[Rfam]
A member of the RNA family "Bacterial small signal recognition particle RNA" from Kushneria sinocarnis, 97 nucleotides long. The organism belongs to Kushneria, within Bacteria. The family's consensus secondary structure is taken from published work.

RNA sequence: UGUCGGUCCUCCCGCAACGCGAAAUCGCAAACCCCGUCAGGCCCGGAAGGGAGCAGCGGUAGUGAUGGAGCCGUGUGCCGGGAUGUGGCUGAUGAGG
Numbered sequence: 001u002g003u004c005g006g007u008c009c010u011c012c013c014g015c016a017a018c019g020c021g022a023a024a025u026c027g028c029a030a031a032c033c034c035c036g037u038c039a040g041g042c043c044c045g046g047a048a049g050g051g052a053g054c055a056g057c058g059g060u061a062g063u064g065a066u067g068g069a070g071c072c073g074u075g076u077g078c079c080g081g082g083a084u085g086u087g088g089c090u091g092a093u094g095a096g097g
Stems, first nucleotide, its partner, number of pairs: 004091005010083005015075001017074003024066005034059004042051003